The family of this 122-nucleotide sequence is "Plastid-psbA-1 3UTR RNA". The family is grouped with related families in Rfam's "Plastid-psbA 3UTR RNA clan". The family's RNA type in Rfam is cis-regulatory element. The family's consensus secondary structure was predicted with LocARNA. Rfam's curators write: Plastid psbA-1 is a non-coding RNA (ncRNA) present in plastids. It was identified in inverted repeat sequences in the 3 prime untranslate region (3UTR) of photosystem II quinone-binding protein (psbA).

RNA sequence: UGUCGAAGCUCCAUCUACAAAUGGUUAAGAUUUUGGUUUUAGCGUAUGCAAGUUUUGUAAACUAAAGGAGCGAUCAAUCCCCACCUUCUUAAUAAAACAAGUAAGGUGGGGAUUGCUCCUUU
Dot-bracket structure: ..........((((......)))).......................................((((((((....(((((.(.(.(.(((........))).).)..).)))))))))))))

The literature on the family includes a 2023 paper in Plant Commun by Richter et al., "Retrograde signaling in plants: A critical review focusing on the GUN pathway and beyond". It is one of the family's seed sequences.